The family of this 106-nucleotide RNA from Canis lupus is "mir-8834 microRNA precursor family". The source organism's lineage runs through Eukaryota, Sarcopterygii, Carnivora, Canidae and Canis lupus. The match comes from Rfam's covariance-model search (67 bits).
RNA sequence: AGGAGGAACAACCCCAGUGGCAGCGGCCAGCUCUGGAGCCCUGGAUUUAGCCCCUGCAGUAACUACAGAGCUCUACCUCUGCAGGGCCUGGAGGCUCCGGGGCGGG
Numbered sequence: 001a002g003g004a005g006g007a008a009c010a011a012c013c014c015c016a017g018u019g020g021c022a023g024c025g026g027c028c029a030g031c032u033c034u035g036g037a038g039c040c041c042u043g044g045a046u047u048u049a050g051c052c053c054c055u056g057c058a059g060u061a062a063c064u065a066c067a068g069a070g071c072u073c074u075a076c077c078u079c080u081g082c083a084g085g086g087c088c089u090g091g092a093g094g095c096u097c098c099g100g101g102g103c104g105g106g
Stems, first nucleotide, its partner, number of pairs: 002098004009090002012086003019079002023076001025074002029072007037064001041059003